[Rfam]
Shown here is a 92-nucleotide RNA sequence from Candidatus Uabimicrobium amorphum, a member of the family "Selenocysteine transfer RNA". On this family, see Lowe and Eddy, Nucleic Acids Res 1997: "tRNAscan-SE: a program for improved detection of transfer RNA genes in genomic sequence".

RNA sequence: GGGAGUAGAAAAGUCCUGGCGGGCUUCGCUGGCUUCAACCCAGUUGAAAGGUCGUUAAACAUCUUUGGUGGGUUCGAUUCCCAUGUACUCCC
Numbered sequence: 001g002g003g004a005g006u007a008g009a010a011a012a013g014u015c016c017u018g019g020c021g022g023g024c025u026u027c028g029c030u031g032g033c034u035u036c037a038a039c040c041c042a043g044u045u046g047a048a049a050g051g052u053c054g055u056u057a058a059a060c061a062u063c064u065u066u067g068g069u070g071g072g073u074u075c076g077a078u079u080c081c082c083a084u085g086u087a088c089u090c091c092c
Base pairs, nucleotide, nucleotide: 001092002091003090004089005088006087007086009084011026012025013024014023015022016021028044029043030042031041032040047066048065049064050063051062069083070082071081072080